Annotation
The record is a 121-nucleotide sequence from Guadua chacoensis, which matches "Plastid-psbA-1 3UTR RNA" in Rfam. Rfam describes the family as follows. Plastid psbA-1 is a non-coding RNA (ncRNA) present in plastids. It was identified in inverted repeat sequences in the 3 prime untranslate region (3UTR) of photosystem II quinone-binding protein (psbA). The sequence is in the family's curated seed alignment. The literature on the family includes a 2023 paper in Plant Commun by Richter et al., "Retrograde signaling in plants: A critical review focusing on the GUN pathway and beyond". Pairs were carried over by alignment from the consensus structure, which was predicted with LocARNA. The family is grouped with related families in Rfam's "Plastid-psbA 3UTR RNA clan".
RNA sequence: UUGAAGUUCCAUCUCUUAAUGGAUAAGGCUUUUCUACUAACAUAUAGGAAUUUUUGAAGGAAGGAAAGCCAGAGAUACCCAAUAUCUUUCUGAAACAAGAUAUUGGGUAUCUCUUUUUUUU
Dot-bracket structure: .......(((((......))))).....................................((((......((((((((.(((.(((((........))))).))).)))))))).))))..